[Rfam]
RNA sequence: CCCGUCGUGAGGCAAAACCUGAAGGAAUCCCAAGGCAUAACUUCGACCCGGGGAUCAUGAACCGUAUGAGGCGGAUGUAGCGGACAAGGUCACCAAACGGGCUGAAGUCCGAUGGCUGCACAGAAGCUGCGGACGUAGAUGCGGCGGGUACGCGAGGCGAAAGAUGUUGGU
Numbered sequence: 001c002c003c004g005u006c007g008u009g010a011g012g013c014a015a016a017a018c019c020u021g022a023a024g025g026a027a028u029c030c031c032a033a034g035g036c037a038u039a040a041c042u043u044c045g046a047c048c049c050g051g052g053g054a055u056c057a058u059g060a061a062c063c064g065u066a067u068g069a070g071g072c073g074g075a076u077g078u079a080g081c082g083g084a085c086a087a088g089g090u091c092a093c094c095a096a097a098c099g100g101g102c103u104g105a106a107g108u109c110c111g112a113u114g115g116c117u118g119c120a121c122a123g124a125a126g127c128u129g130c131g132g133a134c135g136u137a138g139a140u141g142c143g144g145c146g147g148g149u150a151c152g153c154g155a156g157g158c159g160a161a162a163g164a165u166g167u168u169g170g171u
Stems, first nucleotide, its partner, number of pairs: 004013003029170002032167001036163001041157005046149005062144005071136003076131006082110004088103004
Group II catalytic intron D1-D4-3: a 171-nucleotide RNA sequence from Olsenella profusa. Rfam 15.1 lists 4,274 matches to the family in 1,585 species. Group II introns are found in rRNA, tRNA and mRNA of organelles in fungi, plants and protists, and also in mRNA in bacteria.